[Rfam]
The record is a 335-nucleotide part of an RNA from Algoriphagus machipongonensis, which matches "Bacterial large subunit ribosomal RNA" in Rfam. Pairs were carried over by alignment from the consensus structure, which is taken from published work. The organism belongs to Algoriphagus, within Bacteria. Its family is annotated with ribosome and structural constituent of ribosome in the Gene Ontology.
RNA sequence: CGAGUGAAUCAUGGCUAAGGAACUCGGCAAAAUAGCCCUGUAACUUCGGGAGAAGGGGCGCCUCUGGUGACAGAGGCCGCAGUGAAGAGGCCCAGGCGACUGUUUAACAAAAACACAUGGCUUUGCAAAGUUUAACGACUAAGUAUAAGGCCUGACACCUGCCCGGUGCCGGAAGGUUAAGAGGGGGAGUUAUCGCAAGAGAAGCUCUGAAUCGAAGCCCCGGUAAACGGCGGCCGUAACUAUAACGGUCCUAAGGUAGCGAAAUUCCUUGUCGGGUAAGUUCCGACCUGCACGAAUGGUGUAACGAUCUGGGCACUGUCUCAGCCAUGAGCUCG
Numbered sequence: 001c002g003a004g005u006g007a008a009u010c011a012u013g014g015c016u017a018a019g020g021a022a023c024u025c026g027g028c029a030a031a032a033u034a035g036c037c038c039u040g041u042a043a044c045u046u047c048g049g050g051a052g053a054a055g056g057g058g059c060g061c062c063u064c065u066g067g068u069g070a071c072a073g074a075g076g077c078c079g080c081a082g083u084g085a086a087g088a089g090g091c092c093c094a095g096g097c098g099a100c101u102g103u104u105u106a107a108c109a110a111a112a113a114c115a116c117a118u119g120g121c122u123u124u125g126c127a128a129a130g131u132u133u134a135a136c137g138a139c140u141a142a143g144u145a146u147a148a149g150g151c152c153u154g155a156c157a158c159c160u161g162c163c164c165g166g167u168g169c170c171g172g173a174a175g176g177u178u179a180a181g182a183g184g185g186g187g188a189g190u191u192a193u194c195g196c197a198a199g200a201g202a203a204g205c206u207c208u209g210a211a212u213c214g215a216a217g218c219c220c221c222g223g224u225a226a227a228c229g230g231c232g233g234c235c236g237u238a239a240c241u242a243u244a245a246c247g248g249u250c251c252u253a254a255g256g257u258a259g260c261g262a263a264a265u266u267c268c269u270u271g272u273c274g275g276g277u278a279a280g281u282u283c284c285g286a287c288c289u290g291c292a293c294g295a296a297u298g299g300u301g302u303a304a305c306g307a308u309c310u311g312g313g314c315a316c317u318g319u320c321u322c323a324g325c326c327a328u329g330a331g332c333u334c335g
Stems, first nucleotide, its partner, number of pairs: 001335004009330008018321003035059005044049001060077007078082001090314007097306002101115003119152007126143001129140004156301004161231003166228002168224005175219003181213002186208005193200002232250006251255001261288001271287006